[Rfam]
Nucleotides: 138
Base pairs, nucleotide, nucleotide: 002060003059004058005057018047019046020045021044022043023042024041025040026039028037074130075129076128077127078126079124086115087114088113089112090111
Number, partner (000 for none) and nucleotide at each position: 001000u002060g003059c004058a005057g006000c007000u008000g009000u010000g011000u012000c013000a014000a015000a016000u017000u018047c019046a020045g021044u022043c023042c024041u025040c026039g027000u028037c029000c030000a031000g032000c033000c034000c035000g036000u037028g038000c039026u040025g041024a042023g043022g044021a045020c046019u047018g048000g049000c050000c051000a052000a053000a054000c055000a056000g057005c058004u059003g060002c061000c062000a063000c064000a065000g066000c067000a068000a069000c070000a071000g072000c073000u074130g075129u076128a077127g078126c079124u080000c081000c082000u083000g084000a085000g086115c087114c088113c089112c090111a091000u092000u093000g094000u095000g096000c097000c098000u099000c100000u101000c102000g103000c104000u105000c106000a107000a108000c109000c110000c111090u112089g113088g114087g115086g116000a117000u118000a119000a120000a121000u122000a123000a124079a125000c126078g127077c128076u129075a130074c131000a132000g133000a134000c135000a136000c137000c138000g
Notes
The family of this 138-nucleotide sequence from Pelecanus crispus is "Small nucleolar RNA SNORA5". ACA5 is a member of the H/ACA class of snoRNA that guide the sites of modification of uridines to pseudouridines. Gene Ontology terms of the family: RNA processing and nucleolus. The family's RNA type in Rfam is H/ACA-box small nucleolar RNA. The match comes from Rfam's covariance-model search (87 bits). The source organism's lineage runs through Eukaryota, Sauropsida, Neognathae, Pelecaniformes and Pelecanus.